The family of this 108-nucleotide RNA sequence from Acetomicrobium hydrogeniformans is "SAM riboswitch aptamer (S box leader)". Gene Ontology term of the family: regulation of gene expression. It is one of the family's seed sequences. NCBI's taxonomy places the organism under Bacteria, Synergistota, Synergistales, Acetomicrobium, Acetomicrobium hydrogeniformans.
RNA sequence: CUCUUAUCCAGAGCGGCGGAGGGACUGGCCCUGCGAAGCCCGGCAACCUGCUUACCCUUUGGGGAGCGUGGUGCCAAAACCUGCAACCGAAAGGUUGAAUGAUGAGAG
Numbered sequence: 001c002u003c004u005u006a007u008c009c010a011g012a013g014c015g016g017c018g019g020a021g022g023g024a025c026u027g028g029c030c031c032u033g034c035g036a037a038g039c040c041c042g043g044c045a046a047c048c049u050g051c052u053u054a055c056c057c058u059u060u061g062g063g064g065a066g067c068g069u070g071g072u073g074c075c076a077a078a079a080c081c082u083g084c085a086a087c088c089g090a091a092a093g094g095u096u097g098a099a100u101g102a103u104g105a106g107a108g
Base pairs, nucleotide, nucleotide: 001108002107003106004105005104006103007102008101013041015040016039017038021031022030023029025083027081028080042075043074044073045072047071048070050067051066052065079100084097085096086095087094088093